The record is a 114-nucleotide sequence from Georhizobium profundi, which matches "Alphaproteobacterial ar15" in Rfam. Rfam links the family to the GO term protein binding. The base pairs follow the family's consensus structure. Rfam classes the family as a small RNA. A reference for the family is del Val et al. (2012), "A survey of sRNA families in alpha-proteobacteria", RNA Biol.
[Rfam]
RNA sequence: AGCAGAUGCACACGGUGACUACUUUCCUCCCACGUCAUCGCAUCUUGCUGUUCCCCUCUGGAGGUUUUGACCUUCAAACUUAAAAGGGCCCGGGUCUUCCCGUGGCCCUCUUUU
Numbered sequence: 001a002g003c004a005g006a007u008g009c010a011c012a013c014g015g016u017g018a019c020u021a022c023u024u025u026c027c028u029c030c031c032a033c034g035u036c037a038u039c040g041c042a043u044c045u046u047g048c049u050g051u052u053c054c055c056c057u058c059u060g061g062a063g064g065u066u067u068u069g070a071c072c073u074u075c076a077a078a079c080u081u082a083a084a085a086g087g088g089c090c091c092g093g094g095u096c097u098u099c100c101c102g103u104g105g106c107c108c109u110c111u112u113u114u
Stems, first nucleotide, its partner, number of pairs: 001049004005044001007042003015038004059076007085109006091102004